[Rfam]
RNA sequence: GAAAAAUGAUGAUAUUCUUUCUGUAUCCUAUGGUUAACAGUGAAGACUUCAGAUCCAACUCUGAUUUCACUCUGGUU
Number, nucleotide and partner (000 for none) at each position: 001g068002a067003a066004a065005a000006a000007u000008g000009a000010u000011g000012a000013u000014a000015u000016u000017c000018u000019u000020u000021c000022u000023g000024u000025a000026u000027c000028c000029u000030a000031u000032g000033g000034u000035u000036a000037a000038c000039a000040g000041u000042g000043a000044a000045g000046a000047c000048u000049u000050c000051a000052g000053a000054u000055c000056c000057a000058a000059c000060u000061c000062u000063g000064a000065u004066u003067u002068c001069a000070c000071u000072c000073u000074g000075g000076u000077u000
RNA: Small nucleolar RNA SNORD19
Organism: Xiphorhynchus elegans